This 90-nucleotide RNA from Tripterygium wilfordii belongs to the Rfam family "MIR396 microRNA precursor family". Rfam links the family to the GO terms miRNA-mediated post-transcriptional gene silencing and RISC complex.

[Rfam]
RNA sequence: UGUCAUGCUUUUCCACAGCUUUCUUGAACUUCCUUGUUCGUGUUCUUCUUCGGCAUAGAAGUUCAAGAAAGCUGUGGGAUAACAUGGCAA
Numbered sequence: 001u002g003u004c005a006u007g008c009u010u011u012u013c014c015a016c017a018g019c020u021u022u023c024u025u026g027a028a029c030u031u032c033c034u035u036g037u038u039c040g041u042g043u044u045c046u047u048c049u050u051c052g053g054c055a056u057a058g059a060a061g062u063u064c065a066a067g068a069a070a071g072c073u074g075u076g077g078g079a080u081a082a083c084a085u086g087g088c089a090a
Base pairs, nucleotide, nucleotide: 003087004086005085006084007083013077014076015075017073018072019071020070021069022068024066025065026064027063029061030060031059032058